[Rfam]
RNA sequence: GCGUCCAUGGACGACCGCUGGUCGGCGAGGUUUCGCCCACCGGCGCUUUUUCG
Numbered sequence: 001g002c003g004u005c006c007a008u009g010g011a012c013g014a015c016c017g018c019u020g021g022u023c024g025g026c027g028a029g030g031u032u033u034c035g036c037c038c039a040c041c042g043g044c045g046c047u048u049u050u051u052c053g
Stems, first nucleotide, its partner, number of pairs: 016045007025036004
Dot-bracket structure: ...............(((((((..((((....))))..)))))))........